The family of this 82-nucleotide sequence from Agromyces kandeliae is "ZMP/ZTP riboswitch aptamer (pfl RNA motif)".
It scores 47 bits against the family's covariance model.
The literature on the family includes a 2015 paper in Structure by Ren et al., "Global RNA Fold and Molecular Recognition for a pfl Riboswitch Bound to ZMP, a Master Regulator of One-Carbon Metabolism".
The family's consensus secondary structure is taken from published work.
RNA sequence: UGGCGGCGUCGCGACUGGCGUUGAGAUGGGUGACCAUCGGGGAGCGACUGGCACGGACCGACCGCACGCCUGGGCCGGUACG
Numbered sequence: 001u002g003g004c005g006g007c008g009u010c011g012c013g014a015c016u017g018g019c020g021u022u023g024a025g026a027u028g029g030g031u032g033a034c035c036a037u038c039g040g041g042g043a044g045c046g047a048c049u050g051g052c053a054c055g056g057a058c059c060g061a062c063c064g065c066a067c068g069c070c071u072g073g074g075c076c077g078g079u080a081c082g
Stems, first nucleotide, its partner, number of pairs: 003052002008048005015041002017070005026037004059077002062074002